[Rfam]
RNA sequence: GCCGAGCUCAUUAACGAGAGCCUGUAACCCGAGUGGGGGCAUGAAAGUGAUGGAACAUUGAUUCAACUCCAAAGGGUUGGGUUCAAUGUGGCUAGUCUCUGGCCUGCCCGUUCCAAGCAGUGAGUUGGCUCUUAUGGCUUUAGCGAAGGCUCAGACCAUAUGAGUCCUAAAUUGGCGGGUAAUGCGUGAGGCUGGCUUCACAGAGCAGCGACAACCGCCUGCUUCCUGCAGUGGAAGGAUAACAUGUCGGUGCCACUUGGAUCCGUUUGGCCUAAUGGGCUGGUUUAACUGGACCAUCAUUUUU
Numbered sequence: 001g002c003c004g005a006g007c008u009c010a011u012u013a014a015c016g017a018g019a020g021c022c023u024g025u026a027a028c029c030c031g032a033g034u035g036g037g038g039g040c041a042u043g044a045a046a047g048u049g050a051u052g053g054a055a056c057a058u059u060g061a062u063u064c065a066a067c068u069c070c071a072a073a074g075g076g077u078u079g080g081g082u083u084c085a086a087u088g089u090g091g092c093u094a095g096u097c098u099c100u101g102g103c104c105u106g107c108c109c110g111u112u113c114c115a116a117g118c119a120g121u122g123a124g125u126u127g128g129c130u131c132u133u134a135u136g137g138c139u140u141u142a143g144c145g146a147a148g149g150c151u152c153a154g155a156c157c158a159u160a161u162g163a164g165u166c167c168u169a170a171a172u173u174g175g176c177g178g179g180u181a182a183u184g185c186g187u188g189a190g191g192c193u194g195g196c197u198u199c200a201c202a203g204a205g206c207a208g209c210g211a212c213a214a215c216c217g218c219c220u221g222c223u224u225c226c227u228g229c230a231g232u233g234g235a236a237g238g239a240u241a242a243c244a245u246g247u248c249g250g251u252g253c254c255a256c257u258u259g260g261a262u263c264c265g266u267u268u269g270g271c272c273u274a275a276u277g278g279g280c281u282g283g284u285u286u287a288a289c290u291g292g293a294c295c296a297u298c299a300u301u302u303u304u
Base pairs, nucleotide, nucleotide: 001040002039003038004023006021007020008019009018011016028037029036030035043304044303045302046301047300048299049298050297051296052295053294056291057290058288059287060286063283064282065281067279069278070277071276074273075272076271077270078269079264080263081262082261083260084259085258086257088256089255090254091253093252094251099250100249101248102247103246105244106243108238109237111236112235113234114233115232117229118228119227120226122224123223124222125221127166128165129164130163131162133160134159135158136157137156139154140153142151143150144149174219175218176217177216178215185210186209187208192203193202194201
Dot-bracket structure: ((((.((((.(....).)))).)....(((....))))))..(((((((((((..(((((..(((.(.(((..(((((((((((((.((((.((....(((((.((.((.(((((.((((.((((.(((((.(((((.((.(((....))).)).))))).))))).......(((((......(((....(((......)))....)))....))))).)))).))))..)))))))....)).)))))))))))))))))))....)))))..)))).)))..))).))..)))))))))))
Shown here is a 304-nucleotide RNA from Jatropha curcas, a member of the family "Plant signal recognition particle RNA". Rfam 15.1 lists 4,988 matches to the family in 266 species. The family is grouped with related families in Rfam's "SRP clan". A search with the family's covariance model found it, with a score of 250 bits. The source organism's lineage runs through Eukaryota, Euphyllophyta, Spermatophyta, eudicotyledons and Jatropha. Pairs were carried over by alignment from the consensus structure, which is taken from published work.